[Rfam]
RNA: Singlet oxygen resistance RNA X
Organism: Palleronia aestuarii
RNA sequence: AUACCGAAGGCGGCGUUGACACGGUCACGCCUCUUCACCUCCCUGUUGGACUGGCCGGGCCCCGUGCCCGGCCUUUUUU
Numbered sequence: 001a002u003a004c005c006g007a008a009g010g011c012g013g014c015g016u017u018g019a020c021a022c023g024g025u026c027a028c029g030c031c032u033c034u035u036c037a038c039c040u041c042c043c044u045g046u047u048g049g050a051c052u053g054g055c056c057g058g059g060c061c062c063c064g065u066g067c068c069c070g071g072c073c074u075u076u077u078u079u
Stems, first nucleotide, its partner, number of pairs: 008035003012031005053073008